The record is a 57-nucleotide sequence from Salvia japonica, which matches "Plastid-psbA-3 3UTR RNA" in Rfam.
RNA sequence: AAGAAGCAAUAAACCCUUUCUUGUUCUACCAAAAGAGGGUUUAUUGCUCCUUUAUUU
Numbered sequence: 001a002a003g004a005a006g007c008a009a010u011a012a013a014c015c016c017u018u019u020c021u022u023g024u025u026c027u028a029c030c031a032a033a034a035g036a037g038g039g040u041u042u043a044u045u046g047c048u049c050c051u052u053u054a055u056u057u
Stems, first nucleotide, its partner, number of pairs: 001052003005048008018035002021032003
The sequence is in the family's curated seed alignment. The base pairs follow the family's consensus structure, which was predicted with LocARNA. Plastid psbA-3 is a non-coding RNA (ncRNA) present in plastids. It was identified in inverted repeat sequences in the 3 prime untranslate region (3UTR) of photosystem II quinone-binding protein (psbA). Its Rfam clan is "Plastid-psbA 3UTR RNA clan".